[Rfam]
RNA: Saccharopolyspora sRNA 350
RNA sequence: UUGACGCUGUAGGGCCAGCGGCGGUCCGCGACGGUGAGCGCCUCGUCGCCGAUGUGGUCGCCGUCGGCGAAGGUGCCGAGCACGGUGGCGUCGCCGUACCGGCCGGUGCCGAUCUUGUCGACCUUGCCGUGCGCGACCAGGUAGACCUCGUCGAUCUCGCGGCCCUGCUCGAUCAGCAACUCGCCCGCCGCGAAGUCCCGUUGGACGAAGCGGCCGGCCAGCUCGGUGAGCAGCUCGUCGUCCUCGAAGCCGCGCAGCACCGGCACCUCGCGCAGCGUGGGCGGCACCACCGCCACCUGGCGGCCGGUCUGCACGAAGGCCACCCGACCCCGGCCGACGGCGUACGACAGCCGCCGGUUGACCCGGUAGGUGCCGCCGGAGACGUCCACCCAGGGCAGGGCGCGGAGCAGCCAGCGGUUGCUGAUCUCCUGCAUCUGCGGGGCGGACUUGGUGGUCGACGCGAGGUUCUUGGCGGCCGCCACCGAGAGGCUGCUCUGCGGCCUCGACUGG
Numbered sequence: 001u002u003g004a005c006g007c008u009g010u011a012g013g014g015c016c017a018g019c020g021g022c023g024g025u026c027c028g029c030g031a032c033g034g035u036g037a038g039c040g041c042c043u044c045g046u047c048g049c050c051g052a053u054g055u056g057g058u059c060g061c062c063g064u065c066g067g068c069g070a071a072g073g074u075g076c077c078g079a080g081c082a083c084g085g086u087g088g089c090g091u092c093g094c095c096g097u098a099c100c101g102g103c104c105g106g107u108g109c110c111g112a113u114c115u116u117g118u119c120g121a122c123c124u125u126g127c128c129g130u131g132c133g134c135g136a137c138c139a140g141g142u143a144g145a146c147c148u149c150g151u152c153g154a155u156c157u158c159g160c161g162g163c164c165c166u167g168c169u170c171g172a173u174c175a176g177c178a179a180c181u182c183g184c185c186c187g188c189c190g191c192g193a194a195g196u197c198c199c200g201u202u203g204g205a206c207g208a209a210g211c212g213g214c215c216g217g218c219c220a221g222c223u224c225g226g227u228g229a230g231c232a233g234c235u236c237g238u239c240g241u242c243c244u245c246g247a248a249g250c251c252g253c254g255c256a257g258c259a260c261c262g263g264c265a266c267c268u269c270g271c272g273c274a275g276c277g278u279g280g281g282c283g284g285c286a287c288c289a290c291c292g293c294c295a296c297c298u299g300g301c302g303g304c305c306g307g308u309c310u311g312c313a314c315g316a317a318g319g320c321c322a323c324c325c326g327a328c329c330c331c332g333g334c335c336g337a338c339g340g341c342g343u344a345c346g347a348c349a350g351c352c353g354c355c356g357g358u359u360g361a362c363c364c365g366g367u368a369g370g371u372g373c374c375g376c377c378g379g380a381g382a383c384g385u386c387c388a389c390c391c392a393g394g395g396c397a398g399g400g401c402g403c404g405g406a407g408c409a410g411c412c413a414g415c416g417g418u419u420g421c422u423g424a425u426c427u428c429c430u431g432c433a434u435c436u437g438c439g440g441g442g443c444g445g446a447c448u449u450g451g452u453g454g455u456c457g458a459c460g461c462g463a464g465g466u467u468c469u470u471g472g473c474g475g476c477c478g479c480c481a482c483c484g485a486g487a488g489g490c491u492g493c494u495c496u497g498c499g500g501c502c503u504c505g506a507c508u509g510g
Base pairs, nucleotide, nucleotide: 006390008388009387011385015381018328020325021324023321024320025319026318029315035313036312038310040308041307042306045304046303047302048301049300050299051298055232058229059228060227061226062225063224065111066110067109068108075103077102080099082097083096084095085094086093117222118221120219122217123216127212130209131206134203135202136201140197143196149192150191156187159184160183162177236292237291240288244284245283250280251279252278253277254276258275261270262269329342331340351379352378353377355375356374357373361371362370363369391431392430393429394428395427397425399422400421401420403417407415437479438478439477440476442473443472444469445468446467447465448464449463451461452460480509481508483505484504485503488502489501490500491499492498